[Rfam]
RNA sequence: AGCCAUGUGAUAAGCACAAAGCGAACUAUUCUUUCGCCUUUUACUAAAGAAUGCCGUGUGCUCGUCACUUAGCAAUGAUAUUGAAAUAAAAAGUAAUGAAUAUUAUAAUUUUUUUAAUU
Numbered sequence: 001a002g003c004c005a006u007g008u009g010a011u012a013a014g015c016a017c018a019a020a021g022c023g024a025a026c027u028a029u030u031c032u033u034u035c036g037c038c039u040u041u042u043a044c045u046a047a048a049g050a051a052u053g054c055c056g057u058g059u060g061c062u063c064g065u066c067a068c069u070u071a072g073c074a075a076u077g078a079u080a081u082u083g084a085a086a087u088a089a090a091a092a093g094u095a096a097u098g099a100a101u102a103u104u105a106u107a108a109u110u111u112u113u114u115u116a117a118u119u
Base pairs, nucleotide, nucleotide: 002079004077005076008067009066010065011064013062014061015060016059017058018057027053028052029051030050031049032048033047034046102118103117104116105115
Rfam assigns this 119-nucleotide RNA from Lupinus albus to the family "U5 spliceosomal RNA". Lineage of the source: Eukaryota > Viridiplantae > Euphyllophyta > Fabaceae > Lupinus. The match comes from Rfam's covariance-model search (61 bits). The family has 180 seed sequences and 28,527 matches in Rfam 15.1. For this family Rfam cites "Domain analysis of human U5 RNA. Cap trimethylation, protein binding, and spliceosome assembly" (Hinz et al., J Biol Chem, 1996). Rfam describes the family as follows. U5 RNA is a component of both types of known spliceosome.